The family of this 88-nucleotide RNA sequence from Motilimonas pumila is "t44 RNA". The match comes from Rfam's covariance-model search (84 bits). The base pairs follow the family's consensus structure, which was predicted with LocARNA. The source organism's lineage runs through Bacteria, Pseudomonadota, Gammaproteobacteria, Alteromonadales and Motilimonas. From the family's description: This family consists of a number of bacterial RNA genes of between 135 and 170 bases in length. The t44 gene has been identified in several species of enteric bacteria but homologs have also been identified in Pseudomonas and Coxiella species. The t44 gene is found between the map and rpsB genes in all species in the full alignment apart from Shigella flexneri. The function of this RNA is unknown. The family's RNA type in Rfam is small RNA. For this family Rfam cites "Transcriptome analysis of Escherichia coli using high-density oligonucleotide probe arrays" (Tjaden et al., Nucleic Acids Res, 2002).

RNA sequence: AACCACUAUUUUUUAUAACACACACACAUCGACACGUGAUUCGGGGUGCCUUUUUAGGUCGAAUUCAUGGGAUGUGUGGAGGCCUAAC
Numbered sequence: 001a002a003c004c005a006c007u008a009u010u011u012u013u014u015a016u017a018a019c020a021c022a023c024a025c026a027c028a029u030c031g032a033c034a035c036g037u038g039a040u041u042c043g044g045g046g047u048g049c050c051u052u053u054u055u056a057g058g059u060c061g062a063a064u065u066c067a068u069g070g071g072a073u074g075u076g077u078g079g080a081g082g083c084c085u086a087a088c
Stems, first nucleotide, its partner, number of pairs: 023078008035069005040063004048059004